Shown here is a 101-nucleotide RNA sequence from Secundilactobacillus similis, a member of the family "TPP riboswitch aptamer (THI element)". Lineage of the source: Bacteria > Bacillati > Bacilli > Secundilactobacillus > Secundilactobacillus similis. It scores 77 bits against the family's covariance model. A reference for the family is Rodionov et al. (2002), "Comparative genomics of thiamin biosynthesis in procaryotes. New genes and regulatory mechanisms", J Biol Chem.
[Rfam]
RNA sequence: AAAAAACACUAGGGGUGCCACUUGUGGCUGAGAUGGGCGUUGCCCGAUCCCUCGGAACCUGUUAAGUUAGUGCUUGCGAAGGAAAGUGUUGAAAUCAUCGG
Numbered sequence: 001a002a003a004a005a006a007c008a009c010u011a012g013g014g015g016u017g018c019c020a021c022u023u024g025u026g027g028c029u030g031a032g033a034u035g036g037g038c039g040u041u042g043c044c045c046g047a048u049c050c051c052u053c054g055g056a057a058c059c060u061g062u063u064a065a066g067u068u069a070g071u072g073c074u075u076g077c078g079a080a081g082g083a084a085a086g087u088g089u090u091g092a093a094a095u096c097a098u099c100g101g
Stems, first nucleotide, its partner, number of pairs: 006089005011052004016046001017028004035045004058082003063076004